[Rfam]
Nucleotides: 272
Base pairs, nucleotide, nucleotide: 001013002012003011017270019268020267021266022265026261027260028259029258030257031256032255034248035247036246037245040243041242042241043240044239045238046237047236048235049234050233052231053230069223070222071221072220073219074218075217077212078211079210080209081208082206083205084204086201087200088199089198091196092195093194094193096135097134099133100132101131104126106124107123108122109121110120112119113118142146149192150191151190152189153188154187155186160183161182162181167176168175169174
Number, partner (000 for none) and nucleotide at each position: 001013a002012g003011c004000u005000g006000u007000g008000a009000u010000g011003g012002c013001u014000c015000a016000a017270a018000u019268g020267a021266c022265g023000a024000a025000g026261u027260c028259c029258a030257u031256c032255u033000u034248c035247u036246u037245c038000u039000u040243c041242c042241c043240u044239c045238c046237a047236u048235c049234c050233c051000u052231u053230c054000c055000a056000c057000c058000u059000c060000a061000a062000u063000c064000c065000a066000u067000c068000a069223g070222c071221g072220a073219g074218g075217c076000c077212c078211c079210a080209g081208u082206u083205c084204g085000a086201a087200c088199u089198u090000g091196g092195u093194g094193g095000u096135g097134g098000u099133c100132g101131c102000c103000c104126a105000c106124u107123c108122g109121c110120u111000u112119c113118g114000g115000a116000a117000a118113c119112g120110a121109g122108c123107g124106a125000u126104u127000u128000g129000c130000u131101g132100c133099g134097u135096u136000g137000c138000g139000a140000c141000c142146c143000u144000a145000a146142g147000c148000u149192u150191c151190u152189g153188a154187g155186g156000a157000a158000a159000c160183c161182u162181u163000c164000a165000g166000c167176c168175g169174a170000g171000c172000a173000a174169u175168c176167g177000g178000g179000c180000a181162g182161a183160g184000a185000a186155c187154c188153u189152c190151a191150g192149g193094c194093c195092a196091u197000g198089a199088a200087g201086u202000g203000g204084c205083g206082g207000c208081g209080c210079u211078g212077g213000a214000a215000u216000a217075g218074c219073c220072u221071u222070g223069u224000c225000u226000g227000u228000a229000u230053g231052g232000c233050g234049g235048g236047a237046u238045g239044g240043a241042g242041g243040g244000a245037g246036a247035a248034g249000c250000u251000u252000g253000u254000a255032g256031g257030g258029u259028g260027g261026a262000u263000g264000a265022c266021g267020u268019u269000u270017u271000u272000u

Shown here is a 272-nucleotide sequence from Cercospora zeae-maydis, a member of the family "Fungal signal recognition particle RNA".
Rfam classes the family as a non-coding RNA gene.
Its Rfam clan is "SRP clan".
The source organism's lineage runs through Eukaryota, Pezizomycotina, Mycosphaerellaceae, Cercospora and Cercospora zeae-maydis.